[Rfam]
RNA sequence: UACGACAAAGGCAAACCCUGAGCGAUCAGGGGGCGCAAAGUAAAGGGUCUUUAAACUUACAAGGACGUGUUGUAAGAUAGCCUUACUGCCGAAG
Numbered sequence: 001u002a003c004g005a006c007a008a009a010g011g012c013a014a015a016c017c018c019u020g021a022g023c024g025a026u027c028a029g030g031g032g033g034c035g036c037a038a039a040g041u042a043a044a045g046g047g048u049c050u051u052u053a054a055a056c057u058u059a060c061a062a063g064g065a066c067g068u069g070u071u072g073u074a075a076g077a078u079a080g081c082c083u084u085a086c087u088g089c090c091g092a093a094g
Stems, first nucleotide, its partner, number of pairs: 001094001003091002011036002016031006034080001039087004044083003047078005
A member of the RNA family "c-di-GMP-I-GGC riboswitch aptamer" from Candidatus Brocadia sinica, 94 nucleotides long.
The organism belongs to Candidatus Brocadia sinica, within Bacteria.